A member of the RNA family "ASpks TB sRNA" from Streptomyces broussonetiae, 75 nucleotides long. The family's consensus secondary structure is taken from published work. The organism belongs to Streptomyces, within Bacteria. It scores 72 bits against the family's covariance model.
RNA sequence: CUUGACCGAGCCGAGCCACAGCGGGCUGUCCUCGGUGUGCUCGGCGCCGUAGGUGGCGAUCAGCGCCUGCGCCUC
Numbered sequence: 001c002u003u004g005a006c007c008g009a010g011c012c013g014a015g016c017c018a019c020a021g022c023g024g025g026c027u028g029u030c031c032u033c034g035g036u037g038u039g040c041u042c043g044g045c046g047c048c049g050u051a052g053g054u055g056g057c058g059a060u061c062a063g064c065g066c067c068u069g070c071g072c073c074u075c
Stems, first nucleotide, its partner, number of pairs: 016024002031071001033069001038065002043060001045058001047056003